RNA: L13-Bacteroidia ribosomal protein leader
RNA sequence: GGGGUAAUCUUAGAGCCCCAUACGAUUCAUGUUAAUAGUGUUGUCUUUGGCCGGGCAGCAUGGUUAGGUCAAGC
Numbered sequence: 001g002g003g004g005u006a007a008u009c010u011u012a013g014a015g016c017c018c019c020a021u022a023c024g025a026u027u028c029a030u031g032u033u034a035a036u037a038g039u040g041u042u043g044u045c046u047u048u049g050g051c052c053g054g055g056c057a058g059c060a061u062g063g064u065u066a067g068g069u070c071a072a073g074c
Stems, first nucleotide, its partner, number of pairs: 001019005032067005038061009